[Rfam]
RNA sequence: UAGCGCUAUUAGAUCUGGUAGACAAAGAAUGGCGGCUUGGCCAUAUAGAACCUUCGCUUAGCAAUUGGAAUACCCCUAUUUUCGUGAUCCGGAAGGCAUCCGGGUCCUAUCGCUUGCUACAUGACUUACGCGCUGUCAACGCUAAACUUAUCACUUUUGGUGCUGUCCAGCAGGGAGCGCCGAUCCUUUCUGCGCUUCCUCGCGGCUGGCCCUUGAUGGUCUUGGACCUCAAGGAUUGUUUCUUCUCUAUUCCCCUGGCGGAACAGGACCGCGAGGCCUUUGCGUUCAC
Numbered sequence: 001u002a003g004c005g006c007u008a009u010u011a012g013a014u015c016u017g018g019u020a021g022a023c024a025a026a027g028a029a030u031g032g033c034g035g036c037u038u039g040g041c042c043a044u045a046u047a048g049a050a051c052c053u054u055c056g057c058u059u060a061g062c063a064a065u066u067g068g069a070a071u072a073c074c075c076c077u078a079u080u081u082u083c084g085u086g087a088u089c090c091g092g093a094a095g096g097c098a099u100c101c102g103g104g105u106c107c108u109a110u111c112g113c114u115u116g117c118u119a120c121a122u123g124a125c126u127u128a129c130g131c132g133c134u135g136u137c138a139a140c141g142c143u144a145a146a147c148u149u150a151u152c153a154c155u156u157u158u159g160g161u162g163c164u165g166u167c168c169a170g171c172a173g174g175g176a177g178c179g180c181c182g183a184u185c186c187u188u189u190c191u192g193c194g195c196u197u198c199c200u201c202g203c204g205g206c207u208g209g210c211c212c213u214u215g216a217u218g219g220u221c222u223u224g225g226a227c228c229u230c231a232a233g234g235a236u237u238g239u240u241u242c243u244u245c246u247c248u249a250u251u252c253c254c255c256u257g258g259c260g261g262a263a264c265a266g267g268a269c270c271g272c273g274a275g276g277c278c279u280u281u282g283c284g285u286u287c288a289c
Stems, first nucleotide, its partner, number of pairs: 013118001017114003021110001051068002086106007141272002147267003151263001159213002162210004167205002173199008182189002215251005
Dot-bracket structure: ............(...(((.(.............................((..............)).................(((((((.......)))))))...).)))...)......................((....(((.(.......((.((((.((....((((((((.((....))..))))))))....)).)))).)).(((((...........................)))))...........).)))...)).................